The family of this 114-nucleotide RNA sequence from Cohnella cholangitidis is "SAM riboswitch aptamer (S box leader)".
RNA sequence: AUCUUAUCAAGAGCAGGCGGAGGGACUAGCCCUAUGAAGCCCGGCAACCGACGUAGUCAUUAGACGCACGGUGCUAAAUCUUGCGGAAACGUUAACGUUUCUGACAGAUGAGAG
Numbered sequence: 001a002u003c004u005u006a007u008c009a010a011g012a013g014c015a016g017g018c019g020g021a022g023g024g025a026c027u028a029g030c031c032c033u034a035u036g037a038a039g040c041c042c043g044g045c046a047a048c049c050g051a052c053g054u055a056g057u058c059a060u061u062a063g064a065c066g067c068a069c070g071g072u073g074c075u076a077a078a079u080c081u082u083g084c085g086g087a088a089a090c091g092u093u094a095a096c097g098u099u100u101c102u103g104a105c106a107g108a109u110g111a112g113a114g
Stems, first nucleotide, its partner, number of pairs: 002113007013042001016041003022032003026083001028081002043075004048071002052066003079106001084103006
It scores 77 bits against the family's covariance model.